Rfam assigns this 70-nucleotide RNA sequence to the family "L2-Alphaproteobacteria ribosomal protein leader". Rfam classes the family as a cis-regulatory leader. A reference for the family is Eckert and Weinberg (2020), "Discovery of 20 novel ribosomal leader candidates in bacteria and archaea", BMC Microbiol.
[Rfam]
RNA sequence: GGGGACCUGCGGGGCCCUUCAGAUAACGGACGGACCGGCAACGGUCCGCGAAGCAGACGGAAGACAGAAA
Numbered sequence: 001g002g003g004g005a006c007c008u009g010c011g012g013g014g015c016c017c018u019u020c021a022g023a024u025a026a027c028g029g030a031c032g033g034a035c036c037g038g039c040a041a042c043g044g045u046c047c048g049c050g051a052a053g054c055a056g057a058c059g060g061a062a063g064a065c066a067g068a069a070a
Stems, first nucleotide, its partner, number of pairs: 001018004006014003029049001031048007